[Rfam]
RNA sequence: CUGAUUAAUGCGCCCAAGGGUGGACAGAUGCGGAUGUGCAUCGGGCCCUUUCUUAAAGGCACAAAUGUCUUAAAAGAGCGCAAAUUACUGGUCAG
Numbered sequence: 001c002u003g004a005u006u007a008a009u010g011c012g013c014c015c016a017a018g019g020g021u022g023g024a025c026a027g028a029u030g031c032g033g034a035u036g037u038g039c040a041u042c043g044g045g046c047c048c049u050u051u052c053u054u055a056a057a058g059g060c061a062c063a064a065a066u067g068u069c070u071u072a073a074a075a076g077a078g079c080g081c082a083a084a085u086u087a088c089u090g091g092u093c094a095g
Stems, first nucleotide, its partner, number of pairs: 001095005009082005018048003025043001027042006051077004056071006